[Rfam]
RNA sequence: CUAUGACUUAAUUUUAGUCAUGGCGAAAGGAG
Numbered sequence: 001c002u003a004u005g006a007c008u009u010a011a012u013u014u015u016a017g018u019c020a021u022g023g024c025g026a027a028a029g030g031a032g
Stems, first nucleotide, its partner, number of pairs: 001023008
RNA: L31-Firmicutes ribosomal protein leader